RNA sequence: AAGUCUUAUAAAGCGCCUGAACAAGUGUUGAAUGUAAUUGUCAGGUUUUGGUUUAUAUCAGAAAUCAAAGCUAAUUAUAUUUAAAACUUGUAGACGAGGAGGAUAGUUAUCGAAUUAGUUCGGCGGAUGCUAUCCCGGAUGUGGCUCAUUCGUAGCUUAUUAAUUAAACCAUUAAGGUAACUUAAUGUCCAAAGUUAAUAAGAUAGCCAUCA
Numbered sequence: 001a002a003g004u005c006u007u008a009u010a011a012a013g014c015g016c017c018u019g020a021a022c023a024a025g026u027g028u029u030g031a032a033u034g035u036a037a038u039u040g041u042c043a044g045g046u047u048u049u050g051g052u053u054u055a056u057a058u059c060a061g062a063a064a065u066c067a068a069a070g071c072u073a074a075u076u077a078u079a080u081u082u083a084a085a086a087c088u089u090g091u092a093g094a095c096g097a098g099g100a101g102g103a104u105a106g107u108u109a110u111c112g113a114a115u116u117a118g119u120u121c122g123g124c125g126g127a128u129g130c131u132a133u134c135c136c137g138g139a140u141g142u143g144g145c146u147c148a149u150u151c152g153u154a155g156c157u158u159a160u161u162a163a164u165u166a167a168a169c170c171a172u173u174a175a176g177g178u179a180a181c182u183u184a185a186u187g188u189c190c191a192a193a194g195u196u197a198a199u200a201a202g203a204u205a206g207c208c209a210u211c212a
Stems, first nucleotide, its partner, number of pairs: 021091006029083012101135005110123004136152006156202007170187007